RNA sequence: AUGCAGGUACUGUUACAAUACAACUGACGUGUUUUAUUGUCGUUCCCCCUGCUUAAAGCACUUGAUGCAUAACUCUCUCUAACUCCAUUCCGUAGUAAGACAGAGACGCUUGGCUUCAAACAU
Numbered sequence: 001a002u003g004c005a006g007g008u009a010c011u012g013u014u015a016c017a018a019u020a021c022a023a024c025u026g027a028c029g030u031g032u033u034u035u036a037u038u039g040u041c042g043u044u045c046c047c048c049c050u051g052c053u054u055a056a057a058g059c060a061c062u063u064g065a066u067g068c069a070u071a072a073c074u075c076u077c078u079c080u081a082a083c084u085c086c087a088u089u090c091c092g093u094a095g096u097a098a099g100a101c102a103g104a105g106a107c108g109c110u111u112g113g114c115u116u117c118a119a120a121c122a123u
Base pairs, nucleotide, nucleotide: 003052004051005050006049007048015040016039017038018037019036020035022033023032024031078104079103080102083099084098086095
Notes: This 123-nucleotide RNA sequence from Pan troglodytes belongs to the Rfam family "Small nucleolar RNA SNORA63". Rfam 15.1 lists 1,279 matches to the family in 601 species. A reference for the family is Mishra and Eliceiri (1997), "Three small nucleolar RNAs that are involved in ribosomal RNA precursor processing", Proc Natl Acad Sci U S A. The base pairs follow the family's consensus structure, which was predicted with PFOLD. By type it is an H/ACA-box small nucleolar RNA. The organism belongs to Pan, within Eukaryota.